RNA sequence: UUUCGGCCUUCCAACCGCCGAGAUUACUGAAGAGGCACACCUCAUUGCCUUUCGUGCGGAAACGGUUUUCGUAUUUCCAAUCAAAAAGGCAGACAAAGCCGAACAAUGCGUUUAUCGCGCUGUUCCUUCGCCGCAGACCUUAUGCAUGAAUU
Numbered sequence: 001u002u003u004c005g006g007c008c009u010u011c012c013a014a015c016c017g018c019c020g021a022g023a024u025u026a027c028u029g030a031a032g033a034g035g036c037a038c039a040c041c042u043c044a045u046u047g048c049c050u051u052u053c054g055u056g057c058g059g060a061a062a063c064g065g066u067u068u069u070c071g072u073a074u075u076u077c078c079a080a081u082c083a084a085a086a087a088g089g090c091a092g093a094c095a096a097a098g099c100c101g102a103a104c105a106a107u108g109c110g111u112u113u114a115u116c117g118c119g120c121u122g123u124u125c126c127u128u129c130g131c132c133g134c135a136g137a138c139c140u141u142a143u144g145c146a147u148g149a150a151u152u
Stems, first nucleotide, its partner, number of pairs: 001023007034049004056131003081093002101113004

Rfam assigns this 152-nucleotide sequence from Attibartonella tamiae to the family "speF leader". Gene Ontology term of the family: regulation of gene expression. The family's RNA type in Rfam is cis-regulatory leader. The match comes from Rfam's covariance-model search (105 bits). On this family, see Corbino et al., Genome Biol 2005: "Evidence for a second class of S-adenosylmethionine riboswitches and other regulatory RNA motifs in alpha-proteobacteria". From the family's description: This family is a putative regulatory RNA structure that is found upstream of the speF gene encoding ornithine decarboxylase in Agrobacterium tumefaciens and other alpha-proteobacteria.